[Rfam]
The family of this 37-nucleotide sequence from Hipposideros armiger is "XIST RNA A repeat". The literature on the family includes a 2011 paper in RNA by Duszczyk et al., "The Xist RNA A-repeat comprises a novel AUCG tetraloop fold and a platform for multimerization". NCBI's taxonomy places the organism under Eukaryota, Theria, Chiroptera, Yinpterochiroptera, Hipposideros. It is annotated as a small RNA. The match comes from Rfam's covariance-model search (43 bits).
RNA sequence: UUGCCCGUCAGGGCUGCGGAUACCUGGUUUUAUUUUU
Numbered sequence: 001u002u003g004c005c006c007g008u009c010a011g012g013g014c015u016g017c018g019g020a021u022a023c024c025u026g027g028u029u030u031u032a033u034u035u036u037u
Base pairs, nucleotide, nucleotide: 003014004013005012006011017026018025019024